[Rfam]
RNA sequence: UGACCCUAACGGGUCACCUAGCCAACUGACGUUGUUAGUGAACUUAGUAUUCACAAAUUACAGCCAAUAGAAUUGAUUUCUAUUGGCUAUUUUUUU
Numbered sequence: 001u002g003a004c005c006c007u008a009a010c011g012g013g014u015c016a017c018c019u020a021g022c023c024a025a026c027u028g029a030c031g032u033u034g035u036u037a038g039u040g041a042a043c044u045u046a047g048u049a050u051u052c053a054c055a056a057a058u059u060a061c062a063g064c065c066a067a068u069a070g071a072a073u074u075g076a077u078u079u080c081u082a083u084u085g086g087c088u089a090u091u092u093u094u095u096u
Stems, first nucleotide, its partner, number of pairs: 001016006032063004038054005064086008
Shown here is a 96-nucleotide RNA from Vibrio paucivorans, a member of the family "Qrr RNA".
Its family is annotated with quorum sensing in the Gene Ontology.
Taxonomically the source falls in Vibrio (Bacteria, Pseudomonadota, Gammaproteobacteria, Vibrionaceae).